[Rfam]
RNA: MIR3444 microRNA precursor family
RNA sequence: UGUAAAGUAUUGGGAGAUUGGUGAGAUUGACCCAAACCAAAUCUCGAUAUCUAGGCUCGGUUAGGGUCGAUCUCAUCGAUCUCCCAAUACAAAGAG
Numbered sequence: 001u002g003u004a005a006a007g008u009a010u011u012g013g014g015a016g017a018u019u020g021g022u023g024a025g026a027u028u029g030a031c032c033c034a035a036a037c038c039a040a041a042u043c044u045c046g047a048u049a050u051c052u053a054g055g056c057u058c059g060g061u062u063a064g065g066g067u068c069g070a071u072c073u074c075a076u077c078g079a080u081c082u083c084c085c086a087a088u089a090c091a092a093a094g095a096g
Base pairs, nucleotide, nucleotide: 008089009088010087011086012085013084014083015082016081017080018079019078020077021076022075023074024073025072026071029068030067031066032065033064036061037060040057042055043054046051